The record is a 201-nucleotide sequence from Paenibacillus sp. Leaf72, which matches "c-di-AMP riboswitch aptamer (ydaO/yuaA leader)" in Rfam. A search with the family's covariance model found it, with a score of 82 bits. Its family is annotated with regulation of gene expression and cyclic-di-AMP binding in the Gene Ontology.
[Rfam]
RNA sequence: UUUGCUUGAUCGCUGAGUCUUCGCCCAAUAGGCGAAGAGCGGGGGAACCAAACGCACUGCAGCCAUCCGAUGUGAGAGUCGGAAGCUGGCAGCGCAGGGGUGAAUCGUUUGCAGGAGUGUCAUGAAACUCCAGGCAAAUGUAGGGCGACUCUCACCGCCCGAAUCCGACAGCUAACCUCGUAAGCGCAGGUGUAGAGAGGA
Numbered sequence: 001u002u003u004g005c006u007u008g009a010u011c012g013c014u015g016a017g018u019c020u021u022c023g024c025c026c027a028a029u030a031g032g033c034g035a036a037g038a039g040c041g042g043g044g045g046a047a048c049c050a051a052a053c054g055c056a057c058u059g060c061a062g063c064c065a066u067c068c069g070a071u072g073u074g075a076g077a078g079u080c081g082g083a084a085g086c087u088g089g090c091a092g093c094g095c096a097g098g099g100g101u102g103a104a105u106c107g108u109u110u111g112c113a114g115g116a117g118u119g120u121c122a123u124g125a126a127a128c129u130c131c132a133g134g135c136a137a138a139u140g141u142a143g144g145g146c147g148a149c150u151c152u153c154a155c156c157g158c159c160c161g162a163a164u165c166c167g168a169c170a171g172c173u174a175a176c177c178u179c180g181u182a183a184g185c186g187c188a189g190g191u192g193u194a195g196a197g198a199g200g201a
Stems, first nucleotide, its partner, number of pairs: 011186004018038008039181006049097001098166003106140007143160004